BsrC: an 87-nucleotide sequence from Paenibacillus oceani. The base pairs follow the family's consensus structure, which was predicted with CMfinder. A search with the family's covariance model found it, with a score of 87 bits. Lineage of the source: Bacteria > Bacillati > Bacillota > Caryophanales > Paenibacillus. From the family's description: The 301 nucleotide sequence from Kouji Nakamura has been trimmed to a highly conserved ~85 nucleotide long core to form this family. The literature on the family includes a 2008 paper in Gene by Saito et al., "Novel small RNA-encoding genes in the intergenic regions of Bacillus subtilis".
RNA sequence: AUGACCUAAAACAAUGGAAGCCCUACCUCUCUUCCAUCCUUACGAUUCCUUGAUCGUGCCAGUGUGAAUCAGGUACCUACAUCGAAU
Numbered sequence: 001a002u003g004a005c006c007u008a009a010a011a012c013a014a015u016g017g018a019a020g021c022c023c024u025a026c027c028u029c030u031c032u033u034c035c036a037u038c039c040u041u042a043c044g045a046u047u048c049c050u051u052g053a054u055c056g057u058g059c060c061a062g063u064g065u066g067a068a069u070c071a072g073g074u075a076c077c078u079a080c081a082u083c084g085a086a087u
Base pairs, nucleotide, nucleotide: 035066036065039062040061041058042057043056044055045054046053047052